[Rfam]
Overview: A member of the RNA family "MIR2629 microRNA precursor family" from Medicago truncatula, 72 nucleotides long. The family's consensus secondary structure was predicted with RNAalifold. Its family is annotated with RISC complex and miRNA-mediated post-transcriptional gene silencing in the Gene Ontology.

RNA sequence: UGUCGAGAUUUUCCUCAGUAGUUAACUGUAGUCGGUUUUAAACUGUAUCGACAGUUAACUGCCGAUGAAUAU
Numbered sequence: 001u002g003u004c005g006a007g008a009u010u011u012u013c014c015u016c017a018g019u020a021g022u023u024a025a026c027u028g029u030a031g032u033c034g035g036u037u038u039u040a041a042a043c044u045g046u047a048u049c050g051a052c053a054g055u056u057a058a059c060u061g062c063c064g065a066u067g068a069a070u071a072u
Base pairs, nucleotide, nucleotide: 012068013067015065016064018062019061020060021059022058023057024056025055026054027053028052029051
Lineage of the source: Eukaryota > Embryophyta > Euphyllophyta > Hologalegina > Medicago.